[Rfam]
Nucleotides: 074
Base pairs, nucleotide, nucleotide: 002073004071005070006069008067009066010065011064012063013062014061015060016059017058018057019056020055024053025052026051027050028049029048030047031046032045
Number, partner (000 for none) and nucleotide at each position: 001000a002073g003000c004071a005070g006069g007000u008067g009066u010065g011064u012063a013062a014061a015060c016059a017058u018057c019056c020055u021000a022000c023000a024053c025052u026051c027050u028049c029048a030047g031046c032045u033000g034000u035000g036000a037000u038000a039000u040000u041000a042000c043000a044000a045032a046031g047030c048029u049028g050027g051026g052025a053024g054000a055020g056019g057018g058017g059016u060015g061014u062013u063012u064011a065010c066009g067008c068000u069006c070005u071004u072000u073002c074000u